Overview
A member of the RNA family "Small nucleolar RNA Z199" from Kingdonia uniflora, 84 nucleotides long. snoZ199 is a C/D box small nucleolar RNA, which acts as a methylation guide RNA for sites on 18S and 25S rRNA. Rice snoZ199 is reported to be homologous to Arabidopsis snoR13. The family's RNA type in Rfam is C/D-box small nucleolar RNA. The source organism's lineage runs through Eukaryota, Streptophytina, Embryophyta, Mesangiospermae and Kingdonia. The literature on the family includes a 2003 paper in Nucleic Acids Res by Chen et al., "The high diversity of snoRNAs in plants: identification and comparative study of 120 snoRNA genes from Oryza sativa". Pairs were carried over by alignment from the consensus structure, which was predicted with PFOLD. A search with the family's covariance model found it, with a score of 69 bits.
Nucleotides: 084
Stems, first nucleotide, its partner, number of pairs: 001084002004082003039053002043049001
Number, partner (000 for none) and nucleotide at each position: 001084g002083g003000c004082u005081u006080a007000a008000g009000g010000u011000g012000a013000u014000g015000a016000u017000g018000a019000a020000a021000a022000u023000a024000c025000u026000g027000c028000a029000a030000c031000a032000a033000u034000a035000u036000g037000a038000u039053g040052g041000a042000u043049a044000u045000u046000u047000a048000a049043u050000u051000a052040c053039c054000a055000u056000g057000a058000u059000c060000c061000a062000u063000a064000g065000u066000a067000u068000u069000u070000a071000a072000g073000u074000c075000u076000c077000u078000g079000a080006u081005g082004a083002u084001c